[Rfam]
RNA: TPP riboswitch aptamer (THI element)
Organism: Dyadobacter helix
RNA sequence: UUAAAACUUUGGGGGUGUCCACUAUGGUGGUCUGAGAUUAUACCCUUUGAACCUGAUGCAGUUCAUACUGACGAAGGGAAAAGUAGUGAGCCUCCU
Numbered sequence: 001u002u003a004a005a006a007c008u009u010u011g012g013g014g015g016u017g018u019c020c021a022c023u024a025u026g027g028u029g030g031u032c033u034g035a036g037a038u039u040a041u042a043c044c045c046u047u048u049g050a051a052c053c054u055g056a057u058g059c060a061g062u063u064c065a066u067a068c069u070g071a072c073g074a075a076g077g078g079a080a081a082a083g084u085a086g087u088g089a090g091c092c093u094c095c096u
Base pairs, nucleotide, nucleotide: 006084007083008082009081010080011046012045013044014043016040017032019030020029021028052077053076054075059070060069061068